Record summary: Small nucleolar RNA SNORA28: a 124-nucleotide RNA sequence from Anolis carolinensis. It is annotated as an H/ACA-box small nucleolar RNA. ACA28 is a member of the H/ACA class of snoRNA that guide the sites of modification of uridines to pseudouridines. The sequence is in the family's curated seed alignment. A reference for the family is Huttenhofer et al. (2001), "RNomics: an experimental approach that identifies 201 candidates for novel, small, non-messenger RNAs in mouse", EMBO J. The family has 26 seed sequences and 922 matches in Rfam 15.1. NCBI's taxonomy places the organism under Eukaryota, Eumetazoa, Craniata, Amniota, Anolis. The base pairs follow the family's consensus structure, which was predicted with RNAfold.
RNA sequence: AAGCAACACUCUGUGGUAGAUAUCUCAUUGUCUGCUUCAAUUUAAGCUUGCUAUAAUAAACAUAGUCUAACCUAUUCCAGAGGUCUCUGUAGGUGAGGUCAUCUGUUAUAUGGGCUCUAACAUC
Numbered sequence: 001a002a003g004c005a006a007c008a009c010u011c012u013g014u015g016g017u018a019g020a021u022a023u024c025u026c027a028u029u030g031u032c033u034g035c036u037u038c039a040a041u042u043u044a045a046g047c048u049u050g051c052u053a054u055a056a057u058a059a060a061c062a063u064a065g066u067c068u069a070a071c072c073u074a075u076u077c078c079a080g081a082g083g084u085c086u087c088u089g090u091a092g093g094u095g096a097g098g099u100c101a102u103c104u105g106u107u108a109u110a111u112g113g114g115c116u117c118u119a120a121c122a123u124c
Stems, first nucleotide, its partner, number of pairs: 009046002012039002015036001017034006064116006073110003078105004084098004